[Rfam]
This 86-nucleotide RNA sequence from Filobacillus milosensis belongs to the Rfam family "c-di-GMP-I riboswitch aptamer". It scores 84 bits against the family's covariance model.
RNA sequence: AAUCGAAAAGGGCAAACUUGCUGAAAGGUAAGGACGCAAAACUACGGGUCUAAGGUGAAAUUUACUAUGAUCGCCGAGUUGUCGAA
Numbered sequence: 001a002a003u004c005g006a007a008a009a010g011g012g013c014a015a016a017c018u019u020g021c022u023g024a025a026a027g028g029u030a031a032g033g034a035c036g037c038a039a040a041a042c043u044a045c046g047g048g049u050c051u052a053a054g055g056u057g058a059a060a061u062u063u064a065c066u067a068u069g070a071u072c073g074c075c076g077a078g079u080u081g082u083c084g085a086a
Stems, first nucleotide, its partner, number of pairs: 012037002017032006040080004045076003048071003055065004